The record is a 266-nucleotide RNA sequence from bacterium HR14, which matches "Group I catalytic intron" in Rfam. A search with the family's covariance model found it, with a score of 60 bits.

RNA sequence: GCGGUCGCCUCAAUAGUGGGGCGCUCCGAUGGUAACAUCGGAGGCAAACUCGGCUAUAUGCUGGGAAGUCCGUCCCCUCACCCAAAGCCGCACCUCCGUGCUUUGGAGAAGGGGUGCAGAAUCCAGCGCUAGUGGCGCAUGCGCCACUGAAAAUGCGACUGGUGCGGACAAUCAGCAGGGAAGUCUUCGUGACCCCUCAACGACUGUACGCCGAGCAUCCACGCCAGUGGAUGGUGAGACAGUCUGAACUUCCGGGCGACCGGAAG
Numbered sequence: 001g002c003g004g005u006c007g008c009c010u011c012a013a014u015a016g017u018g019g020g021g022c023g024c025u026c027c028g029a030u031g032g033u034a035a036c037a038u039c040g041g042a043g044g045c046a047a048a049c050u051c052g053g054c055u056a057u058a059u060g061c062u063g064g065g066a067a068g069u070c071c072g073u074c075c076c077c078u079c080a081c082c083c084a085a086a087g088c089c090g091c092a093c094c095u096c097c098g099u100g101c102u103u104u105g106g107a108g109a110a111g112g113g114g115u116g117c118a119g120a121a122u123c124c125a126g127c128g129c130u131a132g133u134g135g136c137g138c139a140u141g142c143g144c145c146a147c148u149g150a151a152a153a154u155g156c157g158a159c160u161g162g163u164g165c166g167g168a169c170a171a172u173c174a175g176c177a178g179g180g181a182a183g184u185c186u187u188c189g190u191g192a193c194c195c196c197u198c199a200a201c202g203a204c205u206g207u208a209c210g211c212c213g214a215g216c217a218u219c220c221a222c223g224c225c226a227g228u229g230g231a232u233g234g235u236g237a238g239a240c241a242g243u244c245u246g247a248a249c250u251u252c253c254g255g256g257c258g259a260c261c262g263g264a265a266g
Stems, first nucleotide, its partner, number of pairs: 006023007028039003049215004054210001059177006069168005178196002185189001200245001202244005218231005251264005
Source information:
The base pairs follow the family's consensus structure, which is taken from published work. Group I catalytic introns are large self-splicing ribozymes. They catalyse their own excision from mRNA, tRNA and rRNA precursors in a wide range of organisms.